Source information:
Rfam assigns this 83-nucleotide RNA sequence from Pontibacillus litoralis to the family "tRNA".
RNA sequence: GCCGAAGUGGUGGAACUGGCAUACACGCAGCACUCAAAAUGCUGUGCCCUCUGGGCUUGUGGGUUCGAAUCCCACCUUCGGUA
Numbered sequence: 001g002c003c004g005a006a007g008u009g010g011u012g013g014a015a016c017u018g019g020c021a022u023a024c025a026c027g028c029a030g031c032a033c034u035c036a037a038a039a040u041g042c043u044g045u046g047c048c049c050u051c052u053g054g055g056c057u058u059g060u061g062g063g064u065u066c067g068a069a070u071c072c073c074a075c076c077u078u079c080g081g082u083a
Base pairs, nucleotide, nucleotide: 001082002081003080004079005078006077007076010026011025012024028044029043030042031041032040059075060074061073062072063071
Record summary: Pairs were carried over by alignment from the consensus structure, which is taken from published work. The match comes from Rfam's covariance-model search (55 bits).